[Rfam]
Histone 3' UTR stem-loop: a 45-nucleotide RNA from Carassius auratus.
About the family: The mRNAs of metazoan histone genes lack a poly-A tail. 3' end processing occurs at a site between a highly conserved stem-loop (modelled by this family) and a purine rich region around 20 nts downstream (the histone downstream element, or HDE). The stem-loop is bound by a 31 kDa stem-loop binding protein (SLBP - also termed the histone hairpin binding protein, or HBP). Together with U7 snRNA binding of the HDE, SLBP binding nucleate s the formation of the processing complex.
The match comes from Rfam's covariance-model search (37 bits).
It is annotated as a cis-regulatory element.
RNA sequence: ACAAAGGCUCUUUUAAGAGCCACACACUUCAUCUGACAGAGAGCA
Numbered sequence: 001a002c003a004a005a006g007g008c009u010c011u012u013u014u015a016a017g018a019g020c021c022a023c024a025c026a027c028u029u030c031a032u033c034u035g036a037c038a039g040a041g042a043g044c045a
Stems, first nucleotide, its partner, number of pairs: 006021006